[Rfam]
RNA: Singlet oxygen resistance RNA X
Organism: Rhodobacter sp. 24-YEA-8
RNA sequence: CCCCGACCGGGGCGGCGGGUGAUCCGCCCCAACCUCCCUGUUGGACCUCUCCCGGCCAGAUCAAAGGCCGGGAGCUUUUU
Numbered sequence: 001c002c003c004c005g006a007c008c009g010g011g012g013c014g015g016c017g018g019g020u021g022a023u024c025c026g027c028c029c030c031a032a033c034c035u036c037c038c039u040g041u042u043g044g045a046c047c048u049c050u051c052c053c054g055g056c057c058a059g060a061u062c063a064a065a066g067g068c069c070g071g072g073a074g075c076u077u078u079u080u
Stems, first nucleotide, its partner, number of pairs: 009030006049074008